[Rfam]
RNA sequence: GCACUGGUUAUAGCUCAGUGGUUACUUCGCACCAUAAAUCAUCAGAUUUCAGUUCUGUCCCUCCAUGGGAUCAAACCCCGGGCGCAGUCCAGUGUUUUU
Numbered sequence: 001g002c003a004c005u006g007g008u009u010a011u012a013g014c015u016c017a018g019u020g021g022u023u024a025c026u027u028c029g030c031a032c033c034a035u036a037a038a039u040c041a042u043c044a045g046a047u048u049u050c051a052g053u054u055c056u057g058u059c060c061c062u063c064c065a066u067g068g069g070a071u072c073a074a075a076c077c078c079c080g081g082g083c084g085c086a087g088u089c090c091a092g093u094g095u096u097u098u099u
Stems, first nucleotide, its partner, number of pairs: 002094006013083004018079001020077002026075002029072001
RNA: Vault RNA